[Rfam]
RNA sequence: AUAAUGAUACUUCAACAUUUAUUGUGUUGCUACCUAAAAGAGGGUGGAGGUGGAAUUCCUAUGU
Dot-bracket structure: ...........(((((((.....))))))((((((.....))).)))(((.......))))...
RNA: pemK RNA